[Rfam]
RNA sequence: CGCGGGUCACCGCCAAAUCGGCCGCCACACAAGGCGGACGAGCCGGGAACCCAGGUUCUUCUGGGGUGAAUCCCGCGGACGUCGCACUAGCGAUCACGCGGGUAGGGCUGACGAUUCCCAGCCCGAACCCGUCAGCUAACUCGGCAGGUGGAUGAAAACGGAACG
Dot-bracket structure: ..........((((...(((..................)))((((((....((........))(((.....((((((...................))))))..((((............))))...))).........)))))).))))...............

The record is a 165-nucleotide sequence from Antrihabitans stalactiti, which matches "c-di-AMP riboswitch aptamer (ydaO/yuaA leader)" in Rfam. A search with the family's covariance model found it, with a score of 73 bits. The organism belongs to Antrihabitans, within Bacteria.